[Rfam]
RNA sequence: AUGCCUUAAACUAAUGAGUAAGGAAAAUAACGGUCCGGGGUGACGCCCGGGUCCCCGCCCCACAGUGCGGGAGGAAUUUUUGUGCGGGUACAGGUCCCCCUCGCGGUGACCCGUCUACUUUGCGGGAUGCCAGAGAGCGUGAACUGCCCG
Number, nucleotide and partner (000 for none) at each position: 001a000002u000003g000004c023005c022006u021007u020008a019009a000010a000011c000012u000013a000014a000015u000016g000017a000018g000019u008020a007021a006022g005023g004024a000025a000026a000027a000028u000029a000030a000031c000032g053033g052034u051035c050036c049037g048038g047039g046040g000041u000042g000043a000044c000045g000046c039047c038048c037049g036050g035051g034052u033053c032054c071055c070056c069057g068058c067059c000060c000061c000062a000063c000064a000065g000066u000067g058068c057069g056070g055071g054072a000073g000074g000075a000076a000077u000078u000079u000080u000081u000082g000083u000084g000085c150086g149087g148088g147089u146090a000091c000092a145093g144094g000095u142096c141097c000098c139099c000100c000101u134102c133103g000104c000105g131106g130107u129108g128109a000110c126111c125112c124113g123114u122115c000116u000117a000118c000119u000120u000121u000122g114123c113124g112125g111126g110127a000128u108129g107130c106131c105132a000133g102134a101135g000136a000137g000138c000139g098140u000141g096142a095143a000144c093145u092146g089147c088148c087149c086150g085
RNA: U12 minor spliceosomal RNA